[Rfam]
RNA: SAM riboswitch aptamer (S box leader)
Organism: Ammoniphilus sp. CFH 90114
RNA sequence: ACCUUAUCGAGAGAGGUGGAGGGACUGGCCCGAUGAAACCCAGCAACCGCACGAAGUGUGCAGGUGCUAAUUCCAGCAGGACUUUUAUUGUCCUGAAAGAUAAGAA
Number, nucleotide and partner (000 for none) at each position: 001a000002c000003c104004u103005u102006a101007u100008c099009g000010a000011g000012a000013g041014a000015g040016g039017u038018g000019g000020a000021g031022g030023g029024a000025c076026u075027g074028g073029c023030c022031c021032g000033a000034u000035g000036a000037a000038a017039c016040c015041c013042a068043g067044c066045a065046a000047c064048c063049g061050c060051a059052c058053g000054a000055a000056g000057u000058g052059u051060g050061c049062a000063g048064g047065u045066g044067c043068u042069a000070a000071u000072u098073c028074c027075a026076g025077c095078a094079g093080g092081a091082c090083u000084u000085u000086u000087a000088u000089u000090g082091u081092c080093c079094u078095g077096a000097a000098a072099g008100a007101u006102a005103a004104g003105a000106a000